[Rfam]
RNA: gltS RNA
Organism: Vibrio sediminis
RNA sequence: UAUCACCAAGGAUUAGCUUGCUUCACAAACAGUUCCUGUGAGGCGCGGAAUGGACUCAAGCUCAUCACAUCAGAUGCGCUUAGAAUUCACUAAUUACAAAUGGACAGG
Numbered sequence: 001u002a003u004c005a006c007c008a009a010g011g012a013u014u015a016g017c018u019u020g021c022u023u024c025a026c027a028a029a030c031a032g033u034u035c036c037u038g039u040g041a042g043g044c045g046c047g048g049a050a051u052g053g054a055c056u057c058a059a060g061c062u063c064a065u066c067a068c069a070u071c072a073g074a075u076g077c078g079c080u081u082a083g084a085a086u087u088c089a090c091u092a093a094u095u096a097c098a099a100a101u102g103g104a105c106a107g108g
Stems, first nucleotide, its partner, number of pairs: 021043007060079002063076004